A member of the RNA family "S-element" from Paramesorhizobium deserti, 67 nucleotides long. NCBI's taxonomy places the organism under Bacteria, Pseudomonadati, Alphaproteobacteria, Phyllobacteriaceae, Paramesorhizobium. It is annotated as a cis-regulatory element. The literature on the family includes a 2004 paper in Mol Microbiol by Venkova-Canova et al., "Two discrete elements are required for the replication of a repABC plasmid: an antisense RNA and a stem-loop structure". The base pairs follow the family's consensus structure, which is taken from published work. The match comes from Rfam's covariance-model search (75 bits). This family represents a group of S-elements from p42d and related plasmids.

RNA sequence: UGUCAAGAGUCUUUAGCGUCAUUUGGCGAGCGGAUUUCUUUUGCCUGAUCGAAGGUGAAGGAAAAUG
Numbered sequence: 001u002g003u004c005a006a007g008a009g010u011c012u013u014u015a016g017c018g019u020c021a022u023u024u025g026g027c028g029a030g031c032g033g034a035u036u037u038c039u040u041u042u043g044c045c046u047g048a049u050c051g052a053a054g055g056u057g058a059a060g061g062a063a064a065a066u067g
Stems, first nucleotide, its partner, number of pairs: 010062005017057004022053005028046001030044005